[Rfam]
RNA sequence: CGCAAGUAUUUUACGAUUAAGAAGUAAUUGCCUCUUGUACAUUGUGUAUUAAUCU
Numbered sequence: 001c002g003c004a005a006g007u008a009u010u011u012u013a014c015g016a017u018u019a020a021g022a023a024g025u026a027a028u029u030g031c032c033u034c035u036u037g038u039a040c041a042u043u044g045u046g047u048a049u050u051a052a053u054c055u
Stems, first nucleotide, its partner, number of pairs: 018037005024031002
The record is a 55-nucleotide RNA from Morella rubra, which matches "Plastid-rps18 3UTR RNA" in Rfam.
The family's consensus secondary structure was predicted with LocARNA.
About the family: Plastid rps18 is a non-coding RNA (ncRNA) present in plastids. It was identified as a short stem-loop motif in the 3 prime untranslate region (3UTR) of rps18 gene.
It scores 73 bits against the family's covariance model.
The literature on the family includes a 2023 paper in Plant Commun by Richter et al., "Retrograde signaling in plants: A critical review focusing on the GUN pathway and beyond".